[Rfam]
RNA sequence: UGGCAAUGAUGAAGGAUUUAGUCAUGCACCACUCUGAUUUUUUAGUGCUGAUAAAGUCAACACCUAUUUCUCUGAGCUG
Numbered sequence: 001u002g003g004c005a006a007u008g009a010u011g012a013a014g015g016a017u018u019u020a021g022u023c024a025u026g027c028a029c030c031a032c033u034c035u036g037a038u039u040u041u042u043u044a045g046u047g048c049u050g051a052u053a054a055a056g057u058c059a060a061c062a063c064c065u066a067u068u069u070c071u072c073u074g075a076g077c078u079g
Stems, first nucleotide, its partner, number of pairs: 001079004
The family of this 79-nucleotide RNA sequence from Amborella trichopoda is "Small nucleolar RNA Z221/R21b". Rfam classes the family as a C/D-box small nucleolar RNA. The family's consensus secondary structure was predicted with WAR. Gene Ontology terms of the family: RNA processing and nucleolus. Rfam 15.1 lists 588 matches to the family in 222 species.